RNA sequence: CCGGGUCGGAUGGGAGAGAUCGGCCAGGGCCGGCGCCGAAGGAGCAACCGCCCCGGAAACUCUCAGGCACAAGGGACCUUCCGGCACGG
Number, nucleotide and partner (000 for none) at each position: 001c000002c000003g000004g000005g000006u084007c083008g082009g081010a080011u000012g078013g077014g000015a000016g000017a000018g000019a000020u033021c032022g031023g030024c000025c000026a000027g000028g000029g000030c023031c022032g021033g020034c000035g068036c067037c066038g064039a063040a000041g000042g062043a061044g060045c000046a000047a000048c056049c055050g000051c000052c000053c000054c000055g049056g048057a000058a000059a000060c044061u043062c042063u039064c038065a000066g037067g036068c035069a000070c000071a000072a000073g000074g000075g000076a000077c013078c012079u000080u010081c009082c008083g007084g006085c000086a000087c000088g000089g000
Rfam assigns this 89-nucleotide sequence from Tsuneonella aeria to the family "Glycine riboswitch aptamer".
This family represents the bacterial glycine riboswitch.
The base pairs follow the family's consensus structure.